[Rfam]
RNA: SAM riboswitch aptamer (S box leader)
RNA sequence: CUCUUAUCAAGAGCGGUGGAGGGAAUAGGCCCUGUGAAGCCCGGCAACCAUCAGGUUAGAUUUUUCUAGCUGCUUAAGGUGCUAAAUCCUACAGGUCAAGUAUGAUCUGGAAGAUAAGGG
Dot-bracket structure: ((((((((....(.(((...(((..[[[[)))......))))((((.(((........................)..))))))...(]]]]((((((......))))))..)))))))))
Numbered sequence: 001c002u003c004u005u006a007u008c009a010a011g012a013g014c015g016g017u018g019g020a021g022g023g024a025a026u027a028g029g030c031c032c033u034g035u036g037a038a039g040c041c042c043g044g045c046a047a048c049c050a051u052c053a054g055g056u057u058a059g060a061u062u063u064u065u066c067u068a069g070c071u072g073c074u075u076a077a078g079g080u081g082c083u084a085a086a087u088c089c090u091a092c093a094g095g096u097c098a099a100g101u102a103u104g105a106u107c108u109g110g111a112a113g114a115u116a117a118g119g120g
Stems, first nucleotide, its partner, number of pairs: 001120008013042001015041003021032003026091004043083004048079002050075001087112001092109006